[Rfam]
RNA: Acido-Lenti-1 RNA
RNA sequence: CCUUGGGCUGACGCCCAAGGCUCUAUGCUGCCGCUGCUUCGCAGCU
Dot-bracket structure: ((((((((....))))))))............(((((...))))).
Numbered sequence: 001c002c003u004u005g006g007g008c009u010g011a012c013g014c015c016c017a018a019g020g021c022u023c024u025a026u027g028c029u030g031c032c033g034c035u036g037c038u039u040c041g042c043a044g045c046u
Stems, first nucleotide, its partner, number of pairs: 001020008033045005